RNA sequence: ACCGUGCCGGGCGGUGCCGCAAGGCGUAUCCCGGAUGAGGAUAAGACGGUGAGUGCCUCACAUCGGAAAACCCCGUCAGGC
Numbered sequence: 001a002c003c004g005u006g007c008c009g010g011g012c013g014g015u016g017c018c019g020c021a022a023g024g025c026g027u028a029u030c031c032c033g034g035a036u037g038a039g040g041a042u043a044a045g046a047c048g049g050u051g052a053g054u055g056c057c058u059c060a061c062a063u064c065g066g067a068a069a070a071c072c073c074c075g076u077c078a079g080g081c
Stems, first nucleotide, its partner, number of pairs: 001015004007034005016025003036060005045077005
RNA: Proteo-phage-1 RNA